RNA sequence: GAAAUACUUAGGUAAAACCGGAGUGAUCCGGCGACACAAAGCUACAGGGACUUAAUGAGUCAGCCAGCUGCAACU
Numbered sequence: 001g002a003a004a005u006a007c008u009u010a011g012g013u014a015a016a017a018c019c020g021g022a023g024u025g026a027u028c029c030g031g032c033g034a035c036a037c038a039a040a041g042c043u044a045c046a047g048g049g050a051c052u053u054a055a056u057g058a059g060u061c062a063g064c065c066a067g068c069u070g071c072a073a074c075u
Stems, first nucleotide, its partner, number of pairs: 012037002018031005040069004047065002049061003

Rfam assigns this 75-nucleotide RNA sequence from Butyrivibrio sp. Su6 to the family "c-di-GMP-I riboswitch aptamer". NCBI's taxonomy places the organism under Bacteria, Bacillati, Clostridia, Lachnospirales, Butyrivibrio. GEMM was predicted in a large-scale screen for bacterial structured RNA regulatory elements. It scores 48 bits against the family's covariance model.